[Rfam]
RNA: c-di-AMP riboswitch aptamer (ydaO/yuaA leader)
Organism: Kitasatospora indigofera
RNA sequence: UUCGAACGAACUCUGUACGGCAGGAGUGGGGGACCCACAGGUAAGUCGCCGUCCCGGCAACCGGGACGGCUUGGGGUGAAGCCGCGCUUGCGGCCGGGCAACUCCAGCCCGAACCCGACAGCUCACCUCGCAGGCGUCGGAGAGGAAAUAC
Dot-bracket structure: (((...................)))((((((....((..................................))(((.....((((....))))..((((.......))))...))).........))))))....................